[Rfam]
RNA sequence: GCCUGGAUGGCGGAAUUGGUAUACGCGGCGGUCUCAAACACCGCUGGCUUCACGGCCUUGUGGGUUCGAGUCCCACUCCAGGCA
Numbered sequence: 001g002c003c004u005g006g007a008u009g010g011c012g013g014a015a016u017u018g019g020u021a022u023a024c025g026c027g028g029c030g031g032u033c034u035c036a037a038a039c040a041c042c043g044c045u046g047g048c049u050u051c052a053c054g055g056c057c058u059u060g061u062g063g064g065u066u067c068g069a070g071u072c073c074c075a076c077u078c079c080a081g082g083c084a
Base pairs, nucleotide, nucleotide: 001083002082003081004080005079006078007077010026011025012024028044029043030042031041032040060076061075062074063073064072
The record is an 84-nucleotide RNA sequence from Rubricoccus marinus, which matches "tRNA" in Rfam. The family's RNA type in Rfam is transfer RNA. It scores 57 bits against the family's covariance model. The base pairs follow the family's consensus structure, which is taken from published work.